[Rfam]
RNA sequence: GGACGAUGAAGAUUGUAUCUAUUGGUCUCGUUCGUCGUAACAGGCAUUUGAUUGCCUUUGCCGACCAUCCUGAUAUAUCACCACCCAUAUUCCGAGUCC
Numbered sequence: 001g002g003a004c005g006a007u008g009a010a011g012a013u014u015g016u017a018u019c020u021a022u023u024g025g026u027c028u029c030g031u032u033c034g035u036c037g038u039a040a041c042a043g044g045c046a047u048u049u050g051a052u053u054g055c056c057u058u059u060g061c062c063g064a065c066c067a068u069c070c071u072g073a074u075a076u077a078u079c080a081c082c083a084c085c086c087a088u089a090u091u092c093c094g095a096g097u098c099c
Stems, first nucleotide, its partner, number of pairs: 001099004046059001048054001
Annotation: This 99-nucleotide RNA sequence from Zea mays belongs to the Rfam family "Small nucleolar RNA Z43". For this family Rfam cites "The high diversity of snoRNAs in plants: identification and comparative study of 120 snoRNA genes from Oryza sativa" (Chen et al., Nucleic Acids Res, 2003). Pairs were carried over by alignment from the consensus structure, which was predicted with PFOLD. Taxonomically the source falls in Zea (Eukaryota, Euphyllophyta, Liliopsida, Tripsacinae).